[Rfam]
Nucleotides: 192
Stems, first nucleotide, its partner, number of pairs: 002052004013038001015036003059076004065070001081110005091100003111191005118185002123132003135164002142156003169181001171179002
Number, partner (000 for none) and nucleotide at each position: 001000u002052a003051a004050g005049c006000a007000u008000g009000c010000a011000g012000g013038g014000c015036g016035c017034g018000c019000u020000g021000g022000c023000a024000c025000a026000g027000u028000g029000c030000c031000g032000a033000a034017c035016g036015c037000a038013c039000g040000c041000a042000a043000u044000c045000c046000c047000c048000g049005g050004c051003u052002u053000c054000a055000a056000a057000a058000c059076g060075a061074a062073u063000a064000a065070u066000g067000g068000c069000g070065a071000c072000c073062a074061u075060u076059u077000c078000a079000u080000c081110c082109u083108c084107a085106c086000a087000a088000a089000a090000g091100c092099g093098u094000u095000g096000c097000a098093g099092c100091g101000c102000g103000u104000c105000c106085g107084u108083g109082a110081g111191g112190c113189c114188c115187g116000a117000u118185u119184u120000u121000a122000c123132g124131c125130c126000g127000g128000u129000c130125g131124g132123c133000a134000g135164g136163u137000c138000a139000c140000a141000c142156u143155g144154g145000g146000u147000u148000a149000u150000a151000u152000c153000c154144c155143c156142g157000u158000u159000g160000a161000c162000c163136a164135c165000c166000a167000c168000c169181g170000u171179g172178a173000c174000g175000u176000u177000u178172u179171c180000c181169c182000c183000c184119a185118g186000c187115c188114g189113g190112g191111u192000g